[Rfam]
RNA: Purine riboswitch aptamer
RNA sequence: GGAAAUUAUAAAUAGCGACCUCAUAUAAUCUCGGGGAUAUGGCCCGUAAGUCUCUACCUGACGACCGUUAAUCGUUGGACUAUGAGGGAAGAUAACGUGCAC
Number, nucleotide and partner (000 for none) at each position: 001g000002g000003a000004a000005a000006u000007u000008a000009u000010a000011a000012a000013u000014a000015g000016c000017g000018a000019c087020c086021u085022c084023a083024u082025a081026u000027a000028a000029u049030c000031u000032c046033g045034g044035g043036g000037a000038u000039a000040u000041g000042g000043c035044c034045c033046g032047u000048a000049a029050g000051u000052c000053u000054c000055u000056a000057c000058c078059u077060g076061a075062c074063g073064a072065c000066c000067g000068u000069u000070a000071a000072u064073c063074g062075u061076u060077g059078g058079a000080c000081u025082a024083u023084g022085a021086g020087g019088g000089a000090a000091g000092a000093u000094a000095a000096c000097g000098u000099g000100c000101a000102c000